Rfam assigns this 104-nucleotide RNA sequence from Novosphingobium sp. AP12 to the family "Manganese Mn2+ riboswitch aptamer (yybP-ykoY)".
The match comes from Rfam's covariance-model search (49 bits).
Lineage of the source: Bacteria > Pseudomonadota > Alphaproteobacteria > Sphingomonadaceae > Novosphingobium.
RNA sequence: GCCCGGGUCAUCUGGGGAGUAGCCACCCGCCUCCAGCGGGACCUGCCGUCAACAUACUUGGCCGAGAGGCCAUGGCGCGCAGGAGGACGGUGCAAGGACCGUUC
Numbered sequence: 001g002c003c004c005g006g007g008u009c010a011u012c013u014g015g016g017g018a019g020u021a022g023c024c025a026c027c028c029g030c031c032u033c034c035a036g037c038g039g040g041a042c043c044u045g046c047c048g049u050c051a052a053c054a055u056a057c058u059u060g061g062c063c064g065a066g067a068g069g070c071c072a073u074g075g076c077g078c079g080c081a082g083g084a085g086g087a088c089g090g091u092g093c094a095a096g097g098a099c100c101g102u103u104c
Stems, first nucleotide, its partner, number of pairs: 026040003042083005047077005059072005
Description
The pairing is the family consensus, mapped onto this sequence. Rfam's curators write: This RNA was originally discovered in E. coli during a large scale screen and was named SraF. The family was later found to exist upstream of related families of protein genes in many bacteria, including the the yybP and ykoK genes in B. subtilis.